[Rfam]
The family of this 35-nucleotide sequence from Pustulibacterium marinum is "DUF805b RNA". A search with the family's covariance model found it, with a score of 42 bits. The family's RNA type in Rfam is cis-regulatory element. The family's consensus secondary structure is taken from published work.
RNA sequence: ACAGGGGAAGCCGAAAACCUGAAUUCGAGUAGGCA
Numbered sequence: 001a002c003a004g005g006g007g008a009a010g011c012c013g014a015a016a017a018c019c020u021g022a023a024u025u026c027g028a029g030u031a032g033g034c035a
Base pairs, nucleotide, nucleotide: 002021003020004019005018010034011033012032